Shown here is a 55-nucleotide RNA sequence from Anguilla anguilla, a member of the family "UnaL2 LINE 3' element". The family's consensus secondary structure is taken from published work.
[Rfam]
RNA sequence: UAUACACUUUGUUGUACGUCGCUCUGGGAUAAGAGCGUCUGCCAAAUGCCUGUAA
Numbered sequence: 001u002a003u004a005c006a007c008u009u010u011g012u013u014g015u016a017c018g019u020c021g022c023u024c025u026g027g028g029a030u031a032a033g034a035g036c037g038u039c040u041g042c043c044a045a046a047u048g049c050c051u052g053u054a055a
Stems, first nucleotide, its partner, number of pairs: 013044001014042003020037006
For this family Rfam cites "Solution structure of an RNA stem-loop derived from the 3' conserved region of eel LINE UnaL2" (Baba et al., RNA, 2004). NCBI's taxonomy places the organism under Eukaryota, Craniata, Vertebrata, Actinopteri, Anguilla. About the family: The eel long interspersed element (LINE) UnaL2 and its partner short interspersed element (SINE) share a conserved 3' tail containing a stem-loop that is critical for their retrotransposition. The family's RNA type in Rfam is cis-regulatory element. Its family is annotated with transposition, RNA-mediated in the Gene Ontology.